[Rfam]
RNA sequence: AUGCCCAGUGAUUAUAAAAAGACGCGUUAUUCUGAGGAAUCCAACCUGCUGUCAGUCUGUCCUCUGCUCUGUCUCUAUCUCAUCUUCCUCUGCCUCCUCAUCCUCUCCUCUUCCACCUCUUCCUCGCUUUGGCAGCAGGUCCGCUGACUGCGAUUAUGAGAUAUGAGGGCAC
Number, nucleotide and partner (000 for none) at each position: 001a000002u171003g170004c169005c168006c167007a000008g000009u000010g000011a000012u000013u000014a000015u000016a000017a000018a000019a000020a000021g000022a000023c000024g000025c000026g000027u000028u000029a000030u000031u000032c000033u000034g000035a089036g088037g087038a086039a085040u000041c000042c000043a000044a000045c000046c000047u000048g000049c000050u000051g000052u000053c000054a000055g000056u000057c000058u000059g000060u000061c000062c000063u000064c000065u000066g000067c000068u000069c000070u000071g000072u000073c000074u000075c000076u000077a000078u000079c000080u000081c000082a000083u000084c000085u039086u038087c037088c036089u035090c000091u000092g000093c000094c000095u000096c000097c000098u000099c000100a000101u000102c000103c000104u000105c000106u000107c000108c000109u000110c000111u000112u000113c000114c000115a000116c000117c000118u000119c000120u000121u000122c000123c000124u000125c000126g000127c000128u000129u000130u000131g000132g000133c000134a000135g000136c000137a000138g000139g000140u000141c000142c000143g000144c000145u000146g000147a000148c000149u000150g000151c000152g000153a000154u000155u000156a000157u000158g000159a000160g000161a000162u000163a000164u000165g000166a000167g006168g005169g004170c003171a002172c000
The record is a 172-nucleotide sequence from Gambusia affinis, which matches "Small nucleolar RNA SNORD97" in Rfam. Lineage of the source: Eukaryota > Teleostomi > Neopterygii > Neoteleostei > Gambusia. The family's RNA type in Rfam is C/D-box small nucleolar RNA. Its family is annotated with RNA processing and nucleolus in the Gene Ontology.